[Rfam]
RNA sequence: ACCAUUGCCAUCCAGACUGUGGUGAUGUUUGGUCUAAGUCCCUGAUCUUCAGGGAAAACCUACUUGAGUUGGCUACAUUUUAAUGACAUUAAUGGAGAUGACUGAGGU
Dot-bracket structure: (((....................................(((((.....)))))...................................................)))
Numbered sequence: 001a002c003c004a005u006u007g008c009c010a011u012c013c014a015g016a017c018u019g020u021g022g023u024g025a026u027g028u029u030u031g032g033u034c035u036a037a038g039u040c041c042c043u044g045a046u047c048u049u050c051a052g053g054g055a056a057a058a059c060c061u062a063c064u065u066g067a068g069u070u071g072g073c074u075a076c077a078u079u080u081u082a083a084u085g086a087c088a089u090u091a092a093u094g095g096a097g098a099u100g101a102c103u104g105a106g107g108u
Stems, first nucleotide, its partner, number of pairs: 001108003040054005